[Rfam]
RNA: LOOT RNA
RNA sequence: UGCCUAAACUGUCUGAAAUUAUCAGCAGCAUGGCAUAAAAUCCCAAAGCACAUAAAAACCCCGUCAUUCAGGGCCCGUGCUUUGGGUUAUAGAGGGAAACCUCUGUAAGGACUUCGGUCCU
Numbered sequence: 001u002g003c004c005u006a007a008a009c010u011g012u013c014u015g016a017a018a019u020u021a022u023c024a025g026c027a028g029c030a031u032g033g034c035a036u037a038a039a040a041u042c043c044c045a046a047a048g049c050a051c052a053u054a055a056a057a058a059c060c061c062c063g064u065c066a067u068u069c070a071g072g073g074c075c076c077g078u079g080c081u082u083u084g085g086g087u088u089a090u091a092g093a094g095g096g097a098a099a100c101c102u103c104u105g106u107a108a109g110g111a112c113u114u115c116g117g118u119c120c121u
Stems, first nucleotide, its partner, number of pairs: 001035004009028004014024002042086010059073003088107008108121005